[Rfam]
RNA sequence: GUUUGUGUGUGGAUAGUGUUCAGUACCAAGAACAGGUCUGUUUGUGUGUGGAUUGUGUUCAGUACCAAGGACAGAAGUGGUUUUGU
Dot-bracket structure: .(((((.......(.(((((.(((((.(.(.(((........))).).....).))))).))))).)...)))))...........
Numbered sequence: 001g002u003u004u005g006u007g008u009g010u011g012g013a014u015a016g017u018g019u020u021c022a023g024u025a026c027c028a029a030g031a032a033c034a035g036g037u038c039u040g041u042u043u044g045u046g047u048g049u050g051g052a053u054u055g056u057g058u059u060c061a062g063u064a065c066c067a068a069g070g071a072c073a074g075a076a077g078u079g080g081u082u083u084u085g086u
Stems, first nucleotide, its partner, number of pairs: 002075005014067001016065005022059005028053001030047001032045003

Source information:
The family of this 86-nucleotide sequence from Branchiostoma lanceolatum is "mir-2060 microRNA precursor family". The match comes from Rfam's covariance-model search (60 bits). The base pairs follow the family's consensus structure, which was predicted with RNAalifold. The source organism's lineage runs through Eukaryota, Deuterostomia, Cephalochordata, Branchiostomatidae and Branchiostoma.